[Rfam]
RNA sequence: UCGUUAAGUGAUGACUUAGCAGACAGAGUGUCACAUCAUCAUGUCUUGUCACGGGCACCUCAUUGUCAUGUCAUCACCUUCAAUGACGUGACAAUGACAUGUUAGUAAUUGAGCGUGAUGAUGUGACAUUUCGUCUAUCACAUCAUCACUUAAUGAAA
Numbered sequence: 001u002c003g004u005u006a007a008g009u010g011a012u013g014a015c016u017u018a019g020c021a022g023a024c025a026g027a028g029u030g031u032c033a034c035a036u037c038a039u040c041a042u043g044u045c046u047u048g049u050c051a052c053g054g055g056c057a058c059c060u061c062a063u064u065g066u067c068a069u070g071u072c073a074u075c076a077c078c079u080u081c082a083a084u085g086a087c088g089u090g091a092c093a094a095u096g097a098c099a100u101g102u103u104a105g106u107a108a109u110u111g112a113g114c115g116u117g118a119u120g121a122u123g124u125g126a127c128a129u130u131u132c133g134u135c136u137a138u139c140a141c142a143u144c145a146u147c148a149c150u151u152a153a154u155g156a157a158a
Stems, first nucleotide, its partner, number of pairs: 001156014017140001019138001021136004026131019046111001048109002051106002054103004070087005
Record summary: The family of this 158-nucleotide RNA sequence from Glycine max is "MIR4371 microRNA precursor family". Lineage of the source: Eukaryota > Streptophytina > Mesangiospermae > Glycine > Glycine subgen. Soja. Pairs were carried over by alignment from the consensus structure, which was predicted with RNAalifold. Rfam links the family to the GO terms RISC complex and miRNA-mediated post-transcriptional gene silencing.